[Rfam]
RNA sequence: GGGUUCAGUGACCCGGCCGGGCCCGACGGCAAAGAAGAAAGAACCGGGGAAAGAACCCACCCCGCCCCACCCAGCCCGUCACUCACCGAACCCCCGGGCACCCGAGCAUCGCGAUCACUCGGUCGGGUGAUCGCGACCGAUCGCGCUGGCGCGUUCGUGAUCUGAUCGGGCAGCCUCAGACCUGACAGACAACCGCACACGGAAACGGCCCCCGCCGGGACUGCCAUCCCGGACGAGGGCCUGACCACCGAGGAAGGCAAGACUUCCCG
Number, nucleotide and partner (000 for none) at each position: 001g000002g000003g000004u000005u000006c000007a000008g248009u247010g246011a000012c000013c000014c000015g000016g102017c000018c000019g101020g000021g099022c098023c097024c096025g095026a000027c000028g000029g000030c000031a000032a000033a000034g000035a000036a000037g000038a000039a000040a000041g000042a000043a000044c000045c000046g000047g000048g000049g000050a000051a000052a000053g000054a000055a000056c000057c000058c000059a000060c000061c000062c000063c000064g000065c000066c000067c000068c000069a000070c000071c000072c000073a000074g000075c000076c000077c000078g000079u000080c000081a000082c000083u000084c000085a000086c000087c000088g000089a000090a000091c000092c000093c000094c000095c025096g024097g023098g022099c021100a000101c019102c016103c000104g000105a000106g000107c000108a000109u000110c000111g000112c000113g000114a000115u130116c129117a128118c127119u126120c125121g000122g000123u000124c000125g120126g119127g118128u117129g116130a115131u000132c000133g000134c000135g000136a000137c000138c000139g000140a000141u000142c000143g000144c000145g000146c179147u178148g177149g176150c000151g000152c000153g000154u000155u000156c000157g000158u000159g000160a000161u000162c000163u000164g000165a000166u000167c000168g000169g000170g000171c000172a000173g000174c000175c000176u149177c148178a147179g146180a000181c000182c000183u000184g000185a000186c000187a000188g000189a000190c000191a000192a000193c000194c000195g000196c000197a000198c000199a000200c000201g000202g000203a000204a000205a000206c000207g241208g240209c239210c238211c237212c000213c235214g234215c000216c000217g230218g229219g228220a227221c000222u000223g000224c000225c000226a000227u220228c219229c218230c217231g000232g000233a000234c214235g213236a000237g211238g210239g209240c208241c207242u000243g000244a000245c000246c010247a009248c008249c000250g000251a000252g267253g266254a265255a264256g263257g000258c000259a000260a000261g000262a000263c256264u255265u254266c253267c252268c000269g000
Source information
Rfam assigns this 269-nucleotide RNA to the family "Streptomyces sRNA 4677". Rfam's curators write: Located in the intergenic region between anti-sigma factor SCO4677 gene and a putative regulatory protein gene SCO4676. scr4677 expression requires the SCO4677 activity and scr4677 sRNA itself seem to affect the levels of the SCO4676-associated transcripts. The family's RNA type in Rfam is small RNA. The family has 12 seed sequences and 563 matches in Rfam 15.1.